[Rfam]
RNA sequence: ACACAGGAAGGGAGGUGGUCCGGGAAUUGAUAGCUUCAUGGACAUGUGAGGUGGCUGCGCGCUAGCUGCAGUGGCUCGGAAGAGCUGGCGAUUCACGCGCGCUAGCGAAUUCCCCGCAGUCACCCGGCCCCCGAGCUUCCGGUUUGUCCAACCAGGAGCAUUGCUCGGGGGCCGCGCCAU
Numbered sequence: 001a002c003a004c005a006g007g008a009a010g011g012g013a014g015g016u017g018g019u020c021c022g023g024g025a026a027u028u029g030a031u032a033g034c035u036u037c038a039u040g041g042a043c044a045u046g047u048g049a050g051g052u053g054g055c056u057g058c059g060c061g062c063u064a065g066c067u068g069c070a071g072u073g074g075c076u077c078g079g080a081a082g083a084g085c086u087g088g089c090g091a092u093u094c095a096c097g098c099g100c101g102c103u104a105g106c107g108a109a110u111u112c113c114c115c116g117c118a119g120u121c122a123c124c125c126g127g128c129c130c131c132c133g134a135g136c137u138u139c140c141g142g143u144u145u146g147u148c149c150a151a152c153c154a155g156g157a158g159c160a161u162u163g164c165u166c167g168g169g170g171g172c173c174g175c176g177c178c179a180u
Base pairs, nucleotide, nucleotide: 015058016057017056018055019054060107061106062105063104064103065102066101068100069099073094125174126173127172128171129170130169131168132167133166134165135164136163138156139155141153142152143151
Dot-bracket structure: ..............(((((..................................))))).(((((((.((...(....................)....))))))))).................((((((((((((.((.(((.......))).))......))))))))))))......
Actinobacteria sRNA Ms_IGR-5: a 180-nucleotide sequence from Mycobacterium parascrofulaceum. It is one of the family's seed sequences. Rfam classes the family as a small RNA.